[Rfam]
RNA: Bacillaceae-1 RNA
Organism: Bacilli bacterium VT-13-104
RNA sequence: AAGGACUGAGGUCGGCUAAAGUCGCAACGUCCUGGGGCUCCGAUUACUCGCCCCACCGUAAAGAUUUGUUGCAACGCCGACACUAGCACGUCCUGUGCG
Numbered sequence: 001a002a003g004g005a006c007u008g009a010g011g012u013c014g015g016c017u018a019a020a021g022u023c024g025c026a027a028c029g030u031c032c033u034g035g036g037g038c039u040c041c042g043a044u045u046a047c048u049c050g051c052c053c054c055a056c057c058g059u060a061a062a063g064a065u066u067u068g069u070u071g072c073a074a075c076g077c078c079g080a081c082a083c084u085a086g087c088a089c090g091u092c093c094u095g096u097g098c099g
Stems, first nucleotide, its partner, number of pairs: 011081006024072005086098004